[Rfam]
RNA sequence: AACCUUUCGCUUUCACCGGUGACUUUGGUUUGCUAUAUAACUCUACUAAGGCACGCGGUGAAUGCCAAAGGAG
Numbered sequence: 001a002a003c004c005u006u007u008c009g010c011u012u013u014c015a016c017c018g019g020u021g022a023c024u025u026u027g028g029u030u031u032g033c034u035a036u037a038u039a040a041c042u043c044u045a046c047u048a049a050g051g052c053a054c055g056c057g058g059u060g061a062a063u064g065c066c067a068a069a070g071g072a073g
Base pairs, nucleotide, nucleotide: 003071004070005069006068009065010064012062013061014060015059016058019056020055021054023051024050025049026048027047028046029045
This 73-nucleotide RNA from Thelazia callipaeda belongs to the Rfam family "mir-124 microRNA precursor family". The family's consensus secondary structure was predicted with PFOLD. NCBI's taxonomy places the organism under Eukaryota, Opisthokonta, Eumetazoa, Thelazioidea, Thelazia. On this family, see Lim et al., Genes Dev 2003: "The microRNAs of Caenorhabditis elegans". It scores 59 bits against the family's covariance model.